[Rfam]
RNA sequence: AGCGAAGAGAAAAGUAGCGAUUUUCUCACAUAGCCGUCACGCGCUUUAUAGAAUAUAGCCGGAAUACAGGGUGACCGCUCCGUAAGUCUAUAAGUAAGCCGCCUUG
Numbered sequence: 001a002g003c004g005a006a007g008a009g010a011a012a013a014g015u016a017g018c019g020a021u022u023u024u025c026u027c028a029c030a031u032a033g034c035c036g037u038c039a040c041g042c043g044c045u046u047u048a049u050a051g052a053a054u055a056u057a058g059c060c061g062g063a064a065u066a067c068a069g070g071g072u073g074a075c076c077g078c079u080c081c082g083u084a085a086g087u088c089u090a091u092a093a094g095u096a097a098g099c100c101g102c103c104u105u106g
Stems, first nucleotide, its partner, number of pairs: 002078001007027007041102003044098002046093007060082004065077001069076002